Shown here is a 195-nucleotide RNA sequence from Capsella rubella, a member of the family "Small nucleolar RNA snoR125". By type it is a C/D-box small nucleolar RNA. A search with the family's covariance model found it, with a score of 174 bits. Rfam links the family to the GO terms RNA processing and nucleolus.
RNA sequence: GGGCGAUGAUUAAAAAGAGAGAGGCUUGAGAGGGGAGUGUGAACAAAACUCUCAUGGGAUGGAGAACAAAAAAACCCAAAUCGAAAUCGAUGGAGAAAUGUUUAUUUUUUCCCUUUUUUGAUUUAAGGGUUCUUUUUGAUUCAUCCCUUACCCUCGAUGACGGUCCUUCCAAUCUUUACACUUGAUAUGAGCCCC
Numbered sequence: 001g002g003g004c005g006a007u008g009a010u011u012a013a014a015a016a017g018a019g020a021g022a023g024g025c026u027u028g029a030g031a032g033g034g035g036a037g038u039g040u041g042a043a044c045a046a047a048a049c050u051c052u053c054a055u056g057g058g059a060u061g062g063a064g065a066a067c068a069a070a071a072a073a074a075c076c077c078a079a080a081u082c083g084a085a086a087u088c089g090a091u092g093g094a095g096a097a098a099u100g101u102u103u104a105u106u107u108u109u110u111c112c113c114u115u116u117u118u119u120g121a122u123u124u125a126a127g128g129g130u131u132c133u134u135u136u137u138g139a140u141u142c143a144u145c146c147c148u149u150a151c152c153c154u155c156g157a158u159g160a161c162g163g164u165c166c167u168u169c170c171a172a173u174c175u176u177u178a179c180a181c182u183u184g185a186u187a188u189g190a191g192c193c194c195c
Base pairs, nucleotide, nucleotide: 001194002193003192004191009186010185011184012183013182021155022154023153024152027054028053029052030051031050032049038045039044056148057147058146061145062144063140065137066136068134069133073131074130075129076128077127078124079123080122081121082120083119084118085117086116092112093111094110095109096108097107098106158178159177160176162170163169